[Rfam]
RNA sequence: UUCGGUAUUUGUGACUGGCGAACGUGGAUAACCACGAGGGAGCAAAUAUUUCAUAUGCCGUACGCCUGGGCGAAGCAU
Numbered sequence: 001u002u003c004g005g006u007a008u009u010u011g012u013g014a015c016u017g018g019c020g021a022a023c024g025u026g027g028a029u030a031a032c033c034a035c036g037a038g039g040g041a042g043c044a045a046a047u048a049u050u051u052c053a054u055a056u057g058c059c060g061u062a063c064g065c066c067u068g069g070g071c072g073a074a075g076c077a078u
Stems, first nucleotide, its partner, number of pairs: 004050009015039002017066004024035004056072004